[Rfam]
RNA sequence: AUCGUCCACUAGGGGAGCCCUUACGGCUGAGACAAACUUCGGUUUGGACCCUUUGAACCUGAUCUGGUUGAUACCAGCGUAGGGAAGUGGCGGAAGCACUUC
Numbered sequence: 001a002u003c004g005u006c007c008a009c010u011a012g013g014g015g016a017g018c019c020c021u022u023a024c025g026g027c028u029g030a031g032a033c034a035a036a037c038u039u040c041g042g043u044u045u046g047g048a049c050c051c052u053u054u055g056a057a058c059c060u061g062a063u064c065u066g067g068u069u070g071a072u073a074c075c076a077g078c079g080u081a082g083g084g085a086a087g088u089g090g091c092g093g094a095a096g097c098a099c100u101u102c
Stems, first nucleotide, its partner, number of pairs: 006090005011052004017027003034045004058083004064077004
RNA: TPP riboswitch aptamer (THI element)
Organism: Mangrovibacillus cuniculi